[Rfam]
RNA sequence: UGCUGUGUUCUGUAUGGAAGACUAGUGAUUUUGUUGUUGUGUGUCUUGCAAACAACAGUAAAUCACAGUCUUCCUUACGGUGCAUCGGCA
Numbered sequence: 001u002g003c004u005g006u007g008u009u010c011u012g013u014a015u016g017g018a019a020g021a022c023u024a025g026u027g028a029u030u031u032u033g034u035u036g037u038u039g040u041g042u043g044u045c046u047u048g049c050a051a052a053c054a055a056c057a058g059u060a061a062a063u064c065a066c067a068g069u070c071u072u073c074c075u076u077a078c079g080g081u082g083c084a085u086c087g088g089c090a
Base pairs, nucleotide, nucleotide: 001090002089003088004087005086007083008082010080011079012078013077014076016074017073019071020070021069022068023067025066026065027064028063029062030061031060033059034058035057036056037055038054
This 90-nucleotide sequence from Branchiostoma floridae belongs to the Rfam family "mir-7 microRNA precursor family". Gene Ontology terms of the family: miRNA-mediated post-transcriptional gene silencing and RISC complex. For this family Rfam cites "Identification of novel genes coding for small expressed RNAs" (Lagos-Quintana et al., Science, 2001). This family represents the microRNA (miRNA) precursor mir-7. The family's consensus secondary structure was predicted with PFOLD. The source organism's lineage runs through Eukaryota, Bilateria, Cephalochordata, Amphioxiformes and Branchiostoma.